[Rfam]
RNA sequence: GAAGGUAUGGCCCUUCGGAGUCGCCCUGCGGAGGGAGGCUCCAAACCGCCUCAUGCUGCGUUGGCUAAAGACCGUCGUGGUGAGCGAUGAGGAAACGGCAUCGGAAGAGAUGUCAGGU
Dot-bracket structure: (((((......)))))((((((.((((....)))).))))))....(.((((((((.(((.(((.......))).))).)).....))))))....((((((......))))))..).
Numbered sequence: 001g002a003a004g005g006u007a008u009g010g011c012c013c014u015u016c017g018g019a020g021u022c023g024c025c026c027u028g029c030g031g032a033g034g035g036a037g038g039c040u041c042c043a044a045a046c047c048g049c050c051u052c053a054u055g056c057u058g059c060g061u062u063g064g065c066u067a068a069a070g071a072c073c074g075u076c077g078u079g080g081u082g083a084g085c086g087a088u089g090a091g092g093a094a095a096c097g098g099c100a101u102c103g104g105a106a107g108a109g110a111u112g113u114c115a116g117g118u
Stems, first nucleotide, its partner, number of pairs: 001016005017042006024035004047117001049092006055081002058078003062074003097114006